[Rfam]
RNA sequence: CAACCUGAACUCAGUCGUGAUUACCCGCUGAACUUAAGCAUAUCAUUUAGCGGAGGAAAAGAAACUAAAAAGGAUUCCCUUAGUAACGGCGAGUGAAACGGGAAGAGCCCAGCGCCGAAUCGAUCAGUCUUUGGCUGCUUCGAAAUGUGGCGUAUAGGUGUAAGUUUCCAGCAGUGUCGUAUGUCCGAAGUCCUUACGAUUGAGGCCAUAAACCAGAGAGGGUGCGAGCCCCGUUCUGGAUAGCGGCACUGUUGGUUCGCUUGCUCCUUGGAGUCGGGUUGCUUGAAAGUGCAGCCUAAAGUGGGUGAUAAACUUCAUCUAAGGCUAAAUAUCGACUCGAUUGCGAUAGCGAACAAGUACCGUGAGGGAAAGUUGCAAAGGACUUUGAAGAGAGAGUUCAAGAGAACGUGAAAUCGCUGGAGUGGAAC
Numbered sequence: 001c002a003a004c005c006u007g008a009a010c011u012c013a014g015u016c017g018u019g020a021u022u023a024c025c026c027g028c029u030g031a032a033c034u035u036a037a038g039c040a041u042a043u044c045a046u047u048u049a050g051c052g053g054a055g056g057a058a059a060a061g062a063a064a065c066u067a068a069a070a071a072g073g074a075u076u077c078c079c080u081u082a083g084u085a086a087c088g089g090c091g092a093g094u095g096a097a098a099c100g101g102g103a104a105g106a107g108c109c110c111a112g113c114g115c116c117g118a119a120u121c122g123a124u125c126a127g128u129c130u131u132u133g134g135c136u137g138c139u140u141c142g143a144a145a146u147g148u149g150g151c152g153u154a155u156a157g158g159u160g161u162a163a164g165u166u167u168c169c170a171g172c173a174g175u176g177u178c179g180u181a182u183g184u185c186c187g188a189a190g191u192c193c194u195u196a197c198g199a200u201u202g203a204g205g206c207c208a209u210a211a212a213c214c215a216g217a218g219a220g221g222g223u224g225c226g227a228g229c230c231c232c233g234u235u236c237u238g239g240a241u242a243g244c245g246g247c248a249c250u251g252u253u254g255g256u257u258c259g260c261u262u263g264c265u266c267c268u269u270g271g272a273g274u275c276g277g278g279u280u281g282c283u284u285g286a287a288a289g290u291g292c293a294g295c296c297u298a299a300a301g302u303g304g305g306u307g308a309u310a311a312a313c314u315u316c317a318u319c320u321a322a323g324g325c326u327a328a329a330u331a332u333c334g335a336c337u338c339g340a341u342u343g344c345g346a347u348a349g350c351g352a353a354c355a356a357g358u359a360c361c362g363u364g365a366g367g368g369a370a371a372g373u374u375g376c377a378a379a380g381g382a383c384u385u386u387g388a389a390g391a392g393a394g395a396g397u398u399c400a401a402g403a404g405a406a407c408g409u410g411a412a413a414u415c416g417c418u419g420g421a422g423u424g425g426a427a428c
Base pairs, nucleotide, nucleotide: 024055025053026052027051028050029049035042036041065072066071076103077102078101079100086094087093106326107325108324109323113152114151115150116149117148119146120143121142122141123139125137126136127135157267158266160264161263162262163261168259170257172251173250174249175248176247177246178245180242183241184240185239186238190206192205193204194203195202214218221231222230276297277296278295279294280293281292282291303320304319305318306317307316360367361366383394384393385392386391
About this RNA:
The record is a 428-nucleotide part of an RNA from Caenorhabditis elegans, which matches "Eukaryotic large subunit ribosomal RNA" in Rfam. Rfam 15.1 lists 107,465 matches to the family in 2,616 species. Rfam's curators put it in the seed alignment. Its Rfam clan is "LSU clan".